RNA sequence: GUUUUAUCGAGAGCCGGGGAAGAGAGUUGGCUCGAAGAUCCCGGCACCAACCUGGCCGAUGAGCCAAGGUGGUCCUGCCGACAUCGAUGAAGG
Numbered sequence: 001g002u003u004u005u006a007u008c009g010a011g012a013g014c015c016g017g018g019g020a021a022g023a024g025a026g027u028u029g030g031c032u033c034g035a036a037g038a039u040c041c042c043g044g045c046a047c048c049a050a051c052c053u054g055g056c057c058g059a060u061g062a063g064c065c066a067a068g069g070u071g072g073u074c075c076u077g078c079c080g081a082c083a084u085c086g087a088u089g090a091a092g093g
Stems, first nucleotide, its partner, number of pairs: 002092007013045001015043004022033003027081004046073004051069002053066004077085001

SAM riboswitch aptamer (S box leader): a 93-nucleotide sequence from Eggerthella sp. YY7918. It scores 45 bits against the family's covariance model. Pairs were carried over by alignment from the consensus structure, which is taken from published work. Its family is annotated with regulation of gene expression in the Gene Ontology.